[Rfam]
RNA sequence: AAACAGCCCCCUAUGUUUUGAUUCUUUGGCAGUUUUGGACCCCUGAUCCAUUGUUGACUCGGUCAACGUUGACGUGGCACCCUAAGUGAGAUGCCACGUGUCAAAUUUUUAUUUUUUGUGUCUUGGAGGUCCAAAACUGCCAAAGAAUCAAAACAUAGGGGGCUGUUU
Numbered sequence: 001a002a003a004c005a006g007c008c009c010c011c012u013a014u015g016u017u018u019u020g021a022u023u024c025u026u027u028g029g030c031a032g033u034u035u036u037g038g039a040c041c042c043c044u045g046a047u048c049c050a051u052u053g054u055u056g057a058c059u060c061g062g063u064c065a066a067c068g069u070u071g072a073c074g075u076g077g078c079a080c081c082c083u084a085a086g087u088g089a090g091a092u093g094c095c096a097c098g099u100g101u102c103a104a105a106u107u108u109u110u111a112u113u114u115u116u117u118g119u120g121u122c123u124u125g126g127a128g129g130u131c132c133a134a135a136a137c138u139g140c141c142a143a144a145g146a147a148u149c150a151a152a153a154c155a156u157a158g159g160g161g162g163c164u165g166u167u168u
Base pairs, nucleotide, nucleotide: 001168002167004165005164006163007162008161012157013156014155015154016153017152018151019150020149021148022147023146024145025144026143027142028141029140030139031138032137033136034135035134036133037132038131039130040129041128043126044125045124072099073098075096076095077094078093079092081090
Shown here is a 168-nucleotide RNA from Medicago truncatula, a member of the family "MIR2619 microRNA precursor family". A search with the family's covariance model found it, with a score of 116 bits. The organism belongs to Medicago, within Eukaryota.